Rfam assigns this 151-nucleotide sequence from Shimia abyssi to the family "FMN riboswitch aptamer (RFN element)".
Pairs were carried over by alignment from the consensus structure, which is taken from published work.
It scores 114 bits against the family's covariance model.
[Rfam]
RNA sequence: GCGUGUUCUCAGGGCGGGGUGCAAUUCCCCACCGGCGGUAAGCGGGGGGAUCCCGUAAGCCCGCGAGCGGCGCUAGGGUAUCCCGGCGUGUCUAGCAGAUCUGGUGCAAUUCCAGAGCCGACGGUGAUAGUCCGGAUGGAAGAGAACGUAC
Numbered sequence: 001g002c003g004u005g006u007u008c009u010c011a012g013g014g015c016g017g018g019g020u021g022c023a024a025u026u027c028c029c030c031a032c033c034g035g036c037g038g039u040a041a042g043c044g045g046g047g048g049g050a051u052c053c054c055g056u057a058a059g060c061c062c063g064c065g066a067g068c069g070g071c072g073c074u075a076g077g078g079u080a081u082c083c084c085g086g087c088g089u090g091u092c093u094a095g096c097a098g099a100u101c102u103g104g105u106g107c108a109a110u111u112c113c114a115g116a117g118c119c120g121a122c123g124g125u126g127a128u129a130g131u132c133c134g135g136a137u138g139g140a141a142g143a144g145a146a147c148g149u150a151c
Stems, first nucleotide, its partner, number of pairs: 003149008017029003031131002033120002035064004059118002067096002100116005122134003